[Rfam]
Small nucleolar RNA SNORA11: a 127-nucleotide sequence from Chelydra serpentina. The family's RNA type in Rfam is H/ACA-box small nucleolar RNA. Rfam's curators write: U107 (SNORA11) is a member of the H/ACA class of snoRNAs that guide the sites of modification of uridines to pseudouridines. This snoRNA was identified by RT-PCR from blood cells and its expression confirmed by Northern blot analysis. There is no predicted target for this guide snRNA. Gene Ontology terms of the family: nucleolus and RNA processing. The source organism's lineage runs through Eukaryota, Amniota, Sauria, Archelosauria and Chelydra. It scores 37 bits against the family's covariance model. For this family Rfam cites "A novel experimental approach for systematic identification of box H/ACA snoRNAs from eukaryotes" (Gu et al., Nucleic Acids Res, 2005).
RNA sequence: GGGGCUUGCUGAGAAAAGUGAUAUUAACAAACAUGCAGGUAUCACUUUUCAUAACAGACCUACUAGCUAUCUGUGAAAAGUGAUAAGUGAUAUUAACAAACAUACAAGUAUCACUUUUCAUAGCCUC
Number, nucleotide and partner (000 for none) at each position: 001g000002g061003g060004g059005c000006u057007u056008g055009c000010u000011g000012a000013g050014a049015a048016a047017a046018g045019u044020g043021a042022u041023a040024u039025u000026a000027a000028c000029a000030a000031a000032c000033a000034u000035g000036c000037a000038g000039g024040u023041a022042u021043c020044a019045c018046u017047u016048u015049u014050c013051a000052u000053a000054a000055c008056a007057g006058a000059c004060c003061u002062a000063c000064u000065a000066g000067c000068u000069a000070u000071c000072u000073g000074u120075g119076a118077a117078a000079a000080g000081u113082g112083a111084u110085a109086a000087g103088u102089g101090a000091u099092a000093u000094u098095a000096a000097c000098a094099a091100a000101c089102a088103u087104a000105c000106a000107a000108g000109u085110a084111u083112c082113a081114c000115u000116u000117u077118u076119c075120a074121u000122a000123g000124c000125c000126u000127c000